[Rfam]
RNA: Burkholderia sRNA Bp2_Cand287_SIPHT
RNA sequence: AAAAAGCCCGCCAUGCGUAUGCAUCGGCGGGCUUCGUGCGGUACGACAGCUCGACUCGGGCCGGCUGCCGCCGGCCUUCGCUUUAGCUGUUUGGGGUAUUCGCCCCGCGUCCGCAAGCUGAAAUCAAAUCGACGCAAGCCCACAUGCUAGCACGCUUCGGCAAACGCGUGC
Numbered sequence: 001a002a003a004a005a006g007c008c009c010g011c012c013a014u015g016c017g018u019a020u021g022c023a024u025c026g027g028c029g030g031g032c033u034u035c036g037u038g039c040g041g042u043a044c045g046a047c048a049g050c051u052c053g054a055c056u057c058g059g060g061c062c063g064g065c066u067g068c069c070g071c072c073g074g075c076c077u078u079c080g081c082u083u084u085a086g087c088u089g090u091u092u093g094g095g096g097u098a099u100u101c102g103c104c105c106c107g108c109g110u111c112c113g114c115a116a117g118c119u120g121a122a123a124u125c126a127a128a129u130c131g132a133c134g135c136a137a138g139c140c141c142a143c144a145u146g147c148u149a150g151c152a153c154g155c156u157u158c159g160g161c162a163a164a165c166g167c168g169u170g171c
Stems, first nucleotide, its partner, number of pairs: 004034009014023003037136004048082003053078002057074001059072002062070003083121006094106003107114002151170005